RNA: 7SK RNA
Organism: Hymenochirus boettgeri
RNA sequence: GGAUGUGAGGGCGAUCUGGCUGCGACAUCUGUCACCCCAUUGAUCGCUAGGUUGAUUCGGAGGAUCUGGUUGGCUUAGGCGGGUGUCCCCUCCUCCCUCACCGCUUUCCUGUACGUCCCUCCCGAAGCUGCGCGGCUCGGUGAAGAGGAUGGCUCUACCACGGUAGACAAGCACCGAUCUUCGGUACCAGGGUAAACGAGAGCUGAUCCCCUGCUAGAACCUCCAACCAAACAAGAUCCAAGGUCCCUAGGAGAAAACGUUAGGGUAGUCAAGAUCCAAGUCCCAGGCACAUUCCAAAUACGGCGUGCACGUGGCAAUGGCAGUCUGCCCUUCUUU
Dot-bracket structure: (((.(((((((.((...((....((((((((((.(((((..((((.((..........))..)))))))..))....)))))))))).))))..)))))))....)))........(..((((((.((......))))))((....(.(......).)..))...))...)...............................((..(.((((((......((((.....(.................).)))).....).))))).)....))......................(((.(.(((((((...........))).)..))).)..)))
Numbered sequence: 001g002g003a004u005g006u007g008a009g010g011g012c013g014a015u016c017u018g019g020c021u022g023c024g025a026c027a028u029c030u031g032u033c034a035c036c037c038c039a040u041u042g043a044u045c046g047c048u049a050g051g052u053u054g055a056u057u058c059g060g061a062g063g064a065u066c067u068g069g070u071u072g073g074c075u076u077a078g079g080c081g082g083g084u085g086u087c088c089c090c091u092c093c094u095c096c097c098u099c100a101c102c103g104c105u106u107u108c109c110u111g112u113a114c115g116u117c118c119c120u121c122c123c124g125a126a127g128c129u130g131c132g133c134g135g136c137u138c139g140g141u142g143a144a145g146a147g148g149a150u151g152g153c154u155c156u157a158c159c160a161c162g163g164u165a166g167a168c169a170a171g172c173a174c175c176g177a178u179c180u181u182c183g184g185u186a187c188c189a190g191g192g193u194a195a196a197c198g199a200g201a202g203c204u205g206a207u208c209c210c211c212u213g214c215u216a217g218a219a220c221c222u223c224c225a226a227c228c229a230a231a232c233a234a235g236a237u238c239c240a241a242g243g244u245c246c247c248u249a250g251g252a253g254a255a256a257a258c259g260u261u262a263g264g265g266u267a268g269u270c271a272a273g274a275u276c277c278a279a280g281u282c283c284c285a286g287g288c289a290c291a292u293u294c295c296a297a298a299u300a301c302g303g304c305g306u307g308c309a310c311g312u313g314g315c316a317a318u319g320g321c322a323g324u325c326u327g328c329c330c331u332u333c334u335u336u
Stems, first nucleotide, its partner, number of pairs: 001108003005101007013092002018090002024087010035073002037069003042066004047060002117171001120167002122140004127136002141162002147158001149156001203273002207267001209265005214259001221253004230248001296336003300331001302329003305324001306322003